[Rfam]
RNA: mir-2796 microRNA precursor family
Organism: Manduca sexta
RNA sequence: UUCAGUCGGCAGGGGUUUCUUUCGGCCUUCAGCUGUUUGUAGUCUGUAGGCCGGCGGAAACUACUUGCUGACAGUG
Numbered sequence: 001u002u003c004a005g006u007c008g009g010c011a012g013g014g015g016u017u018u019c020u021u022u023c024g025g026c027c028u029u030c031a032g033c034u035g036u037u038u039g040u041a042g043u044c045u046g047u048a049g050g051c052c053g054g055c056g057g058a059a060a061c062u063a064c065u066u067g068c069u070g071a072c073a074g075u076g
Stems, first nucleotide, its partner, number of pairs: 005072004010067004014062007022054007030046003